[Rfam]
RNA sequence: UUGUCAGCCAGGCUCCUGGCUAAAUUCCAGCUCCUAGCUGGAUUUUAGCCAAAGCUUGGCGAGGAA
Numbered sequence: 001u002u003g004u005c006a007g008c009c010a011g012g013c014u015c016c017u018g019g020c021u022a023a024a025u026u027c028c029a030g031c032u033c034c035u036a037g038c039u040g041g042a043u044u045u046u047a048g049c050c051a052a053a054g055c056u057u058g059g060c061g062a063g064g065a066a
Stems, first nucleotide, its partner, number of pairs: 007060003011056004017051008027041005
Dot-bracket structure: ......(((.((((..((((((((..(((((.....)))))..)))))))).)))).)))......

The family of this 66-nucleotide RNA from Neotoma lepida is "mir-344 microRNA precursor family". Rfam links the family to the GO terms RISC complex and miRNA-mediated post-transcriptional gene silencing. Taxonomically the source falls in Neotoma (Eukaryota, Teleostomi, Theria, Glires).